Rfam assigns this 56-nucleotide RNA sequence to the family "S4-Clostridia ribosomal protein leader". Pairs were carried over by alignment from the consensus structure, which is taken from published work. The family's RNA type in Rfam is cis-regulatory leader. For this family Rfam cites "Discovery of 20 novel ribosomal leader candidates in bacteria and archaea" (Eckert and Weinberg, BMC Microbiol, 2020).
[Rfam]
RNA sequence: GAAAGGUCAUGGUAAAAGAGACAUGACUGGAUGCACAUACCGGCAUCCCAAUUAGG
Numbered sequence: 001g002a003a004a005g006g007u008c009a010u011g012g013u014a015a016a017a018g019a020g021a022c023a024u025g026a027c028u029g030g031a032u033g034c035a036c037a038u039a040c041c042g043g044c045a046u047c048c049c050a051a052u053u054a055g056g
Stems, first nucleotide, its partner, number of pairs: 005028007029048006